This 103-nucleotide sequence from Pontibacter flavimaris belongs to the Rfam family "SAM riboswitch aptamer (S box leader)". From the family's description: The SAM riboswitch is found upstream of a number of genes which code for proteins involved in methionine or cysteine biosynthesis in Gram-positive bacteria.
[Rfam]
RNA sequence: GAUUUAUAAAGAAGAGGGGAGAGAGCAGGCUCAGCGAACCUCUAGCAACCACGGCCCCGGCCGUAAAGGUGCUAACACCUGCCCAAUUUGGGACCUAUAAAUU
Numbered sequence: 001g002a003u004u005u006a007u008a009a010a011g012a013a014g015a016g017g018g019g020a021g022a023g024a025g026c027a028g029g030c031u032c033a034g035c036g037a038a039c040c041u042c043u044a045g046c047a048a049c050c051a052c053g054g055c056c057c058c059g060g061c062c063g064u065a066a067a068g069g070u071g072c073u074a075a076c077a078c079c080u081g082c083c084c085a086a087u088u089u090g091g092g093a094c095c096u097a098u099a100a101a102u103u
Stems, first nucleotide, its partner, number of pairs: 001103008013043005021032003026081004044073004049069002051064004082092004
Dot-bracket structure: ((((((((....(((((...(((..[[[[)))......)))))((((.((((((......))))...))))))....]]]]((((...))))...))))))))